[Rfam]
RNA: Small nucleolar RNA SNORA79
Organism: Muntiacus reevesi
RNA sequence: AGGUGACUCAGUUCCUCUCACUGCUUGGAGCUUUAAGUAGUGGGAUUUUAGUCCAUCAUAUAUCUAAGCUGACUUGUCUUCACUCAGGACACCGUGGGAAUGUGUUGGCUGUCCAUCAGUGCUUUCUGAUUCUUGUGGAGUCCAAUAGUU
Numbered sequence: 001a002g003g004u005g006a007c008u009c010a011g012u013u014c015c016u017c018u019c020a021c022u023g024c025u026u027g028g029a030g031c032u033u034u035a036a037g038u039a040g041u042g043g044g045a046u047u048u049u050a051g052u053c054c055a056u057c058a059u060a061u062a063u064c065u066a067a068g069c070u071g072a073c074u075u076g077u078c079u080u081c082a083c084u085c086a087g088g089a090c091a092c093c094g095u096g097g098g099a100a101u102g103u104g105u106u107g108g109c110u111g112u113c114c115a116u117c118a119g120u121g122c123u124u125u126c127u128g129a130u131u132c133u134u135g136u137g138g139a140g141u142c143c144a145a146u147a148g149u150u
Stems, first nucleotide, its partner, number of pairs: 002057004008051001016045005022039004071142005084129005090121003097114002100112003